[Rfam]
RNA sequence: CAUAUUAAGGUGCAAAUUUGUCGAAAGGCAAAGACGCUAAACUAUAGGGCCUAAGGAUUUUAUAAUCUAUGGCAGCCAGUUCCCUUU
Dot-bracket structure: ...........((...((((((....))))))...))..((((...(((((....((((....))))...)))..))))))......
Rfam assigns this 87-nucleotide RNA from Caproiciproducens galactitolivorans to the family "c-di-GMP-I riboswitch aptamer". The source organism's lineage runs through Bacteria, Clostridia, Eubacteriales, Acutalibacteraceae and Caproiciproducens.